RNA sequence: AUGUGCCUGGCUCCCUGUAUGCCACACGUAGAGAUAAUCUGAUGAGCAUCAUACAGGAAGGAGAUUGUCUACUGCGGGUGGCGUGCGAGGAGUCAAGCAUAU
Number, nucleotide and partner (000 for none) at each position: 001a102002u101003g100004u099005g098006c097007c000008u095009g094010g093011c092012u091013c090014c089015c000016u087017g086018u085019a084020u083021g082022c081023c080024a079025c000026a000027c076028g075029u074030a073031g072032a000033g000034a000035u000036a000037a000038u000039c000040u000041g000042a000043u000044g000045a000046g000047c000048a000049u000050c000051a000052u000053a000054c000055a000056g000057g000058a000059a000060g000061g000062a000063g000064a000065u000066u000067g000068u000069c000070u000071a000072c031073u030074g029075c028076g027077g000078g000079u024080g023081g022082c021083g020084u019085g018086c017087g016088a000089g014090g013091a012092g011093u010094c009095a008096a000097g006098c005099a004100u003101a002102u001
Overview
Rfam assigns this 102-nucleotide RNA from Apostasia shenzhenica to the family "mir-160 microRNA precursor family". The family has 7 seed sequences and 1,502 matches in Rfam 15.1. A search with the family's covariance model found it, with a score of 82 bits.